[Rfam]
Shown here is an 84-nucleotide RNA sequence from Bacillus sp. Y1, a member of the family "c-di-GMP-I riboswitch aptamer". A search with the family's covariance model found it, with a score of 84 bits. The family's consensus secondary structure is taken from published work.

RNA sequence: UGCACGAAACGGCAAAUCUAUUGAAAGAUAGAGACGCAAAGCCACAGGUCUAAGGUCUAUGACUAUGAUAGCUGGGUUACCGAA
Numbered sequence: 001u002g003c004a005c006g007a008a009a010c011g012g013c014a015a016a017u018c019u020a021u022u023g024a025a026a027g028a029u030a031g032a033g034a035c036g037c038a039a040a041g042c043c044a045c046a047g048g049u050c051u052a053a054g055g056u057c058u059a060u061g062a063c064u065a066u067g068a069u070a071g072c073u074g075g076g077u078u079a080c081c082g083a084a
Stems, first nucleotide, its partner, number of pairs: 012037002017032006040078004045074003048069003055063003